The family of this 101-nucleotide RNA sequence from Clostridium sp. DSM 8431 is "TPP riboswitch aptamer (THI element)".
The base pairs follow the family's consensus structure, which is taken from published work.
Gene Ontology term of the family: thiamine pyrophosphate binding.
Vitamin B(1) in its active form thiamin pyrophosphate (TPP) is an essential coenzyme that is synthesised by coupling of pyrimidine and thiazole moieties in bacteria. The previously detected thiamin-regulatory element, thi box was extended, resulting in a new, highly conserved RNA secondary structure, the THI element, which is widely distributed in eubacteria and also occurs in some archaea. Analysis of operon structures identified a large number of new candidate thiamin-regulated genes, mostly transporters, in various prokaryotic organisms. The THI element is a riboswitch that directly binds to TPP to regulate gene expression through a variety of mechanisms in archaea, bacteria and eukaryotes. through a variety of mechanisms in archaea, bacteria and eukaryotes.
[Rfam]
RNA sequence: GACGUAAGCUAGGGGUGCCAAUUUGGCUGAGAAGGAAAAGGUCCUAACUCUUUAAACCUGAUGUGGUUAAUACCAACGUAGGGAAGCGGAAUAUAAAGUGU
Numbered sequence: 001g002a003c004g005u006a007a008g009c010u011a012g013g014g015g016u017g018c019c020a021a022u023u024u025g026g027c028u029g030a031g032a033a034g035g036a037a038a039a040g041g042u043c044c045u046a047a048c049u050c051u052u053u054a055a056a057c058c059u060g061a062u063g064u065g066g067u068u069a070a071u072a073c074c075a076a077c078g079u080a081g082g083g084a085a086g087c088g089g090a091a092u093a094u095a096a097a098g099u100g101u
Base pairs, nucleotide, nucleotide: 008087009086010085011051012050013049014048017027018026019025020024034044035043036042057082058081059080060079064075065074066073